The record is a 101-nucleotide sequence from Oceanispirochaeta sp. M1, which matches "Purine riboswitch aptamer" in Rfam. Pairs were carried over by alignment from the consensus structure, which is taken from published work. The match comes from Rfam's covariance-model search (62 bits). NCBI's taxonomy places the organism under Bacteria, Spirochaetia, Spirochaetales, Spirochaetaceae, Oceanispirochaeta.
[Rfam]
RNA sequence: AGCACCUGAAAAGAUAAAGCUUAUAUAUUCCAGAUAAUAUGGUUCUGCGAGUUUCUACAGAUCCCCGAAAAGGAUCUUCUAUAAGUUUACCUAUAAACCUC
Dot-bracket structure: .................((((((((...((((((.........)))).))........((((((.......))))))..))))))))..............